[Rfam]
This 314-nucleotide RNA sequence from Pomacea canaliculata belongs to the Rfam family "Nuclear RNase P".
The family has 116 seed sequences and 3,848 matches in Rfam 15.1.
RNA sequence: GUGGUUGUGAAGCUCGCAUAAGGGGGCACACACGGGGUAGUCAUUACCCGUCAAUCAUCCCCCUGGGAAGGUCUGAGACGUAAGCCGACUAACCAUCUAGCAGGUGGUCCCUGUAACCUGUGUGGGGAGUGGCGAACUAGAAAAGUAGGCUGGGCCGGCAGCCAUAUAUGGCAGGUGAAGUCCGCUUGGGGUCACCUGAGUGACGGAUGCUUUGCUGCUUGGUCCAGUUGAAAGAAGCCAUGGCUAGCUAUGUAAGUUCAAUAUGUGAGGUGGUUGAUGCAACCAUAACUCAAUUCAGACUACUCCACAACCAC
Numbered sequence: 001g002u003g004g005u006u007g008u009g010a011a012g013c014u015c016g017c018a019u020a021a022g023g024g025g026g027c028a029c030a031c032a033c034g035g036g037g038u039a040g041u042c043a044u045u046a047c048c049c050g051u052c053a054a055u056c057a058u059c060c061c062c063c064u065g066g067g068a069a070g071g072u073c074u075g076a077g078a079c080g081u082a083a084g085c086c087g088a089c090u091a092a093c094c095a096u097c098u099a100g101c102a103g104g105u106g107g108u109c110c111c112u113g114u115a116a117c118c119u120g121u122g123u124g125g126g127g128a129g130u131g132g133c134g135a136a137c138u139a140g141a142a143a144a145g146u147a148g149g150c151u152g153g154g155c156c157g158g159c160a161g162c163c164a165u166a167u168a169u170g171g172c173a174g175g176u177g178a179a180g181u182c183c184g185c186u187u188g189g190g191g192u193c194a195c196c197u198g199a200g201u202g203a204c205g206g207a208u209g210c211u212u213u214g215c216u217g218c219u220u221g222g223u224c225c226a227g228u229u230g231a232a233a234g235a236a237g238c239c240a241u242g243g244c245u246a247g248c249u250a251u252g253u254a255a256g257u258u259c260a261a262u263a264u265g266u267g268a269g270g271u272g273g274u275u276g277a278u279g280c281a282a283c284c285a286u287a288a289c290u291c292a293a294u295u296c297a298g299a300c301u302a303c304u305c306c307a308c309a310a311c312c313a314c
Stems, first nucleotide, its partner, number of pairs: 001314004007308003013269007021064005035049005073298005083245004093107005108128008129241005150227008270286007
The match comes from Rfam's covariance-model search (150 bits). Rfam classes the family as a ribozyme. NCBI's taxonomy places the organism under Eukaryota, Eumetazoa, Mollusca, Caenogastropoda, Pomacea. Clan: RNaseP clan.